Rfam assigns this 105-nucleotide sequence from Oryza meyeriana to the family "mir-399 microRNA precursor family".
Pairs were carried over by alignment from the consensus structure, which was predicted with PFOLD.
The match comes from Rfam's covariance-model search (58 bits).
Rfam 15.1 lists 2,396 matches to the family in 221 species.
About the family: mir-399 was identified in both Arabidopsis thaliana and Oryza sativa computationally and was later experimentally verified. mir-399 is thought to target mRNAs coding for a phosphatase transporter. The mature sequence is excised from the 3' arm of the hairpin.
[Rfam]
RNA sequence: AGAUGAAUUCCGGGGCAAAUUUCCUUUGGCAGUAGUCUGGUAACCCCAGGCAUCGGUGAUGAACCGCAACAUCUGCCAAAGGACAACUUGCCCAGCAAUACAGCU
Numbered sequence: 001a002g003a004u005g006a007a008u009u010c011c012g013g014g015g016c017a018a019a020u021u022u023c024c025u026u027u028g029g030c031a032g033u034a035g036u037c038u039g040g041u042a043a044c045c046c047c048a049g050g051c052a053u054c055g056g057u058g059a060u061g062a063a064c065c066g067c068a069a070c071a072u073c074u075g076c077c078a079a080a081g082g083a084c085a086a087c088u089u090g091c092c093c094a095g096c097a098a099u100a101c102a103g104c105u
Stems, first nucleotide, its partner, number of pairs: 005101001007099003011095001013093006021085001022083003027078006035070001